[Rfam]
RNA sequence: CGAUUAAAAAGGCAAACCUGUUGAAAAACCGGGACGCAAAGUUACAGAUCUAAUGUGUAUAUGCACGAUGAUGGCUGUUCUGCCGAA
Numbered sequence: 001c002g003a004u005u006a007a008a009a010a011g012g013c014a015a016a017c018c019u020g021u022u023g024a025a026a027a028a029c030c031g032g033g034a035c036g037c038a039a040a041g042u043u044a045c046a047g048a049u050c051u052a053a054u055g056u057g058u059a060u061a062u063g064c065a066c067g068a069u070g071a072u073g074g075c076u077g078u079u080c081u082g083c084c085g086a087a
Stems, first nucleotide, its partner, number of pairs: 012037002017032002020029003040081002045077003048072003055066004
Shown here is an 87-nucleotide RNA sequence from Jeotgalibacillus sp. S-D1, a member of the family "c-di-GMP-I riboswitch aptamer".
A search with the family's covariance model found it, with a score of 74 bits.
About the family: GEMM was predicted in a large-scale screen for bacterial structured RNA regulatory elements.